[Rfam]
RNA sequence: UGGCCAUAGAAUAACUUAUUCUGUGGCCACUUUGAGUUACGAUAGUUACUAUGCUAAUUUACGAGACUACAGUAACUCCUUACUAAGUGGUUUACUAUAACGUUACGGUAAAUAUCGUCUUGUGUUAUAGUAACCCAACUGUCGUAAAUAUGUAUUGACAUUAUUGUAAAUUAAUAUAUAAAAUUAUCGUAAAUGAAGGUGGCUAUAGAAUAACUUAUUUUUGUAGACG
Numbered sequence: 001u002g003g004c005c006a007u008a009g010a011a012u013a014a015c016u017u018a019u020u021c022u023g024u025g026g027c028c029a030c031u032u033u034g035a036g037u038u039a040c041g042a043u044a045g046u047u048a049c050u051a052u053g054c055u056a057a058u059u060u061a062c063g064a065g066a067c068u069a070c071a072g073u074a075a076c077u078c079c080u081u082a083c084u085a086a087g088u089g090g091u092u093u094a095c096u097a098u099a100a101c102g103u104u105a106c107g108g109u110a111a112a113u114a115u116c117g118u119c120u121u122g123u124g125u126u127a128u129a130g131u132a133a134c135c136c137a138a139c140u141g142u143c144g145u146a147a148a149u150a151u152g153u154a155u156u157g158a159c160a161u162u163a164u165u166g167u168a169a170a171u172u173a174a175u176a177u178a179u180a181a182a183a184u185u186a187u188c189g190u191a192a193a194u195g196a197a198g199g200u201g202g203c204u205a206u207a208g209a210a211u212a213a214c215u216u217a218u219u220u221u222u223g224u225a226g227a228c229g
Stems, first nucleotide, its partner, number of pairs: 001229002004226001006224004010219005016213018037192011050178004055173008065165002069161001074155001080147004087142006093132011108116001

MIR6217 microRNA precursor family: a 229-nucleotide RNA sequence from Miscanthus lutarioriparius.
The source organism's lineage runs through Eukaryota, Streptophytina, Magnoliopsida, Panicoideae and Miscanthus.
Rfam links the family to the GO terms miRNA-mediated post-transcriptional gene silencing and RISC complex.
The base pairs follow the family's consensus structure, which was predicted with RNAalifold.